[Rfam]
RNA sequence: UUUUUAGUAUAAAUAUGUCCUGUGCAAUAUUUAGGACAUAUUUAUGCUUAAA
Numbered sequence: 001u002u003u004u005u006a007g008u009a010u011a012a013a014u015a016u017g018u019c020c021u022g023u024g025c026a027a028u029a030u031u032u033a034g035g036a037c038a039u040a041u042u043u044a045u046g047c048u049u050a051a052a
Stems, first nucleotide, its partner, number of pairs: 006048007014040003018036004022031001
RNA: mir-1302 microRNA precursor family
Organism: Mustela putorius